Rfam assigns this 35-nucleotide sequence from Mucinivorans hirudinis to the family "DUF805b RNA". The source organism's lineage runs through Bacteria, Bacteroidota, Bacteroidales, Rikenellaceae and Mucinivorans. The family's RNA type in Rfam is cis-regulatory element.
[Rfam]
RNA sequence: AGGGAGAAAGCCGAAAAUCCUAUAUAGAGUAGGAA
Numbered sequence: 001a002g003g004g005a006g007a008a009a010g011c012c013g014a015a016a017a018u019c020c021u022a023u024a025u026a027g028a029g030u031a032g033g034a035a
Base pairs, nucleotide, nucleotide: 002021003020004019005018011033012032